[Rfam]
RNA sequence: GGAGCGGCACGGGCCCGGUGGCCCAGCAGGUCUUCAAAACCUGUGCGGUGUGGCAACCCCACGCUCGGUCGGUUCGACUCCGGCGCCGCUCC
Dot-bracket structure: ((((((((..(((((....))))).((((((.......))))))..((((...........))))...((((.......)))).))))))))
RNA: Selenocysteine transfer RNA
Organism: Gaiella occulta